The record is a 94-nucleotide RNA from Ruegeria arenilitoris, which matches "Rhodo-rpoB RNA" in Rfam. NCBI's taxonomy places the organism under Bacteria, Pseudomonadati, Rhodobacterales, Roseobacteraceae, Ruegeria. The base pairs follow the family's consensus structure, which is taken from published work.
[Rfam]
RNA sequence: GGAUCGGGAGGCUACCAUUCGGGACGGUGGCCACGAAUUGAUCCGGACGUGUCGUCUCGUAUGUGCAAGGCGCCGGGGCCCGACGGUGUUUUUG
Numbered sequence: 001g002g003a004u005c006g007g008g009a010g011g012c013u014a015c016c017a018u019u020c021g022g023g024a025c026g027g028u029g030g031c032c033a034c035g036a037a038u039u040g041a042u043c044c045g046g047a048c049g050u051g052u053c054g055u056c057u058c059g060u061a062u063g064u065g066c067a068a069g070g071c072g073c074c075g076g077g078g079c080c081c082g083a084c085g086g087u088g089u090u091u092u093u094g
Stems, first nucleotide, its partner, number of pairs: 001044005010032007066094005071088005